[Rfam]
RNA sequence: ACGUUAUCAAGAAAGGCGGAGGGACUAGACCCAAUGAAGCCUUAGCAACCCUUUGUUUUUUCCCAAUCUUUUUGGAAGUAUAAAGAAGGUGCUACGUUCUAAUCCGUACGAAAGACGAUAGUAUCCGUUUUAAAUUCGGAAUAGAUAACGG
Numbered sequence: 001a002c003g004u005u006a007u008c009a010a011g012a013a014a015g016g017c018g019g020a021g022g023g024a025c026u027a028g029a030c031c032c033a034a035u036g037a038a039g040c041c042u043u044a045g046c047a048a049c050c051c052u053u054u055g056u057u058u059u060u061u062c063c064c065a066a067u068c069u070u071u072u073u074g075g076a077a078g079u080a081u082a083a084a085g086a087a088g089g090u091g092c093u094a095c096g097u098u099c100u101a102a103u104c105c106g107u108a109c110g111a112a113a114g115a116c117g118a119u120a121g122u123a124u125c126c127g128u129u130u131u132a133a134a135u136u137c138g139g140a141a142u143a144g145a146u147a148a149c150g151g
Stems, first nucleotide, its partner, number of pairs: 002150007013043005021032003026102001028100001044093004049089002051085006097143001103140004108135001